A member of the RNA family "Pseudomonas sRNA P27" from Halopseudomonas yangmingensis, 187 nucleotides long. A search with the family's covariance model found it, with a score of 116 bits. Rfam classes the family as a small RNA. Lineage of the source: Bacteria > Pseudomonadati > Pseudomonadales > Pseudomonadaceae > Halopseudomonas. On this family, see Livny et al., Nucleic Acids Res 2006: "Identification of 17 Pseudomonas aeruginosa sRNAs and prediction of sRNA-encoding genes in 10 diverse pathogens using the bioinformatic tool sRNAPredict2".

RNA sequence: GGGUUUCACUCCUGGAUUUACCAUUGACCACCCUCGCGGGUGGCAAGUUUUGGUGUCAGAUCCAGCCUGCACUGAAUCGGGAGCACCAUCUGCGUAGGCUUGGGGUUUAAGGCUUGCGCCGCCUACGGUCUUGGACAGCCCCCGCAUGGCAGGGACCCCAAUAAGUGGCAUGCUCCAGAGAGCACGC
Numbered sequence: 001g002g003g004u005u006u007c008a009c010u011c012c013u014g015g016a017u018u019u020a021c022c023a024u025u026g027a028c029c030a031c032c033c034u035c036g037c038g039g040g041u042g043g044c045a046a047g048u049u050u051u052g053g054u055g056u057c058a059g060a061u062c063c064a065g066c067c068u069g070c071a072c073u074g075a076a077u078c079g080g081g082a083g084c085a086c087c088a089u090c091u092g093c094g095u096a097g098g099c100u101u102g103g104g105g106u107u108u109a110a111g112g113c114u115u116g117c118g119c120c121g122c123c124u125a126c127g128g129u130c131u132u133g134g135a136c137a138g139c140c141c142c143c144g145c146a147u148g149g150c151a152g153g154g155a156c157c158c159c160a161a162u163a164a165g166u167g168g169c170a171u172g173c174u175c176c177a178g179a180g181a182g183c184a185c186g187c
Stems, first nucleotide, its partner, number of pairs: 002158002005155003011149002013146001022047001028043006051088006057080001059078003063074003092145003097140004105136010180187001